[Rfam]
Notes:
This 53-nucleotide RNA belongs to the Rfam family "Mu-gpT-DE RNA". The sequence is in the family's curated seed alignment. Pairs were carried over by alignment from the consensus structure, which is taken from published work.
RNA sequence: CCCUGACAGGCGCAUACCGUGCCUGACACUAGCCACGACAGGAGAUAACAAUG
Numbered sequence: 001c002c003c004u005g006a007c008a009g010g011c012g013c014a015u016a017c018c019g020u021g022c023c024u025g026a027c028a029c030u031a032g033c034c035a036c037g038a039c040a041g042g043a044g045a046u047a048a049c050a051a052u053g
Base pairs, nucleotide, nucleotide: 002042003041004040005039007025008024009023010022011021